[Rfam]
RNA: Bacterial RNase P class A
Organism: Formicincola oecophyllae
RNA sequence: CCAGAUAGCCGGGCGACCGCUGCAGUCACCACUGCAGAGGAAAGUCCGGGCUCCACGGAAGAACGGUGCCGGCUAACAGCCGGCGGGGGUGACCCCAGGGACAGUGCCACAGAAACGAGACCGUCUGCCUGCUUGCCGCACGCCUUCAAAAGCUGCGCCAGGCCCAUAGGCCGACAAGGGUGAAACGGCGCGGUAAGAGCGCACCGCAGCCCUGGCAACAAGGCUGGUCAUGGUAAACCCCACCGGGAGCAAGACCGAAUAGGAACGGCAGGCCCACAAAGCCAGAAGCUCUUUCGCUUCGCUGUUCGGGUUGGUCGCGUGAGGCGGUUUGUGAGAACCGUCCCAGAUGAAUGGUCGCCCCACCCCUUUGGGGGUAGGACAGAACCCGGCUUACAGGCUGUCUGGCCUU
Numbered sequence: 001c002c003a004g005a006u007a008g009c010c011g012g013g014c015g016a017c018c019g020c021u022g023c024a025g026u027c028a029c030c031a032c033u034g035c036a037g038a039g040g041a042a043a044g045u046c047c048g049g050g051c052u053c054c055a056c057g058g059a060a061g062a063a064c065g066g067u068g069c070c071g072g073c074u075a076a077c078a079g080c081c082g083g084c085g086g087g088g089g090u091g092a093c094c095c096c097a098g099g100g101a102c103a104g105u106g107c108c109a110c111a112g113a114a115a116c117g118a119g120a121c122c123g124u125c126u127g128c129c130u131g132c133u134u135g136c137c138g139c140a141c142g143c144c145u146u147c148a149a150a151a152g153c154u155g156c157g158c159c160a161g162g163c164c165c166a167u168a169g170g171c172c173g174a175c176a177a178g179g180g181u182g183a184a185a186c187g188g189c190g191c192g193g194u195a196a197g198a199g200c201g202c203a204c205c206g207c208a209g210c211c212c213u214g215g216c217a218a219c220a221a222g223g224c225u226g227g228u229c230a231u232g233g234u235a236a237a238c239c240c241c242a243c244c245g246g247g248a249g250c251a252a253g254a255c256c257g258a259a260u261a262g263g264a265a266c267g268g269c270a271g272g273c274c275c276a277c278a279a280a281g282c283c284a285g286a287a288g289c290u291c292u293u294u295c296g297c298u299u300c301g302c303u304g305u306u307c308g309g310g311u312u313g314g315u316c317g318c319g320u321g322a323g324g325c326g327g328u329u330u331g332u333g334a335g336a337a338c339c340g341u342c343c344c345a346g347a348u349g350a351a352u353g354g355u356c357g358c359c360c361c362a363c364c365c366c367u368u369u370g371g372g373g374g375u376a377g378g379a380c381a382g383a384a385c386c387c388g389g390c391u392u393a394c395a396g397g398c399u400g401u402c403u404g405g406c407c408u409u
Stems, first nucleotide, its partner, number of pairs: 001405010011394001012359007020037007042392003046389005051249004059294003064245005069083005084098001085096004099240002104238002106234003121179002123175003127171005187205002190202003206229001207226005213220002253316004263307006285300005323342008
Dot-bracket structure: ((((((((((((((((((.(((((((....)))))))....[[[.[[[[[((((....[[[..((((((((((.....)))))(((((....)))).)((...(((((............(((((.(((((...................................))))).)))..)).......((.(((.......))).))((((((.((....)).)))))..)..)))..)))))))))))))...((((......((((((................(((((..]]].))))).)))))).....))))......((((((((....))))))))..........))))))).........................]]]]]]]].).))))))))))....